[Rfam]
RNA sequence: CUCGACAAAGGCAAACCUGGCGAAAGCCAGUGACGCAAAGCUAGAGGGGCUUCUGUGGCGAAAGCCGUAUAUGCCAGCCAGUUACCGAAA
Numbered sequence: 001c002u003c004g005a006c007a008a009a010g011g012c013a014a015a016c017c018u019g020g021c022g023a024a025a026g027c028c029a030g031u032g033a034c035g036c037a038a039a040g041c042u043a044g045a046g047g048g049g050c051u052u053c054u055g056u057g058g059c060g061a062a063a064g065c066c067g068u069a070u071a072u073g074c075c076a077g078c079c080a081g082u083u084a085c086c087g088a089a090a
Stems, first nucleotide, its partner, number of pairs: 003087002011036002017030005034077001039083004046079002048075003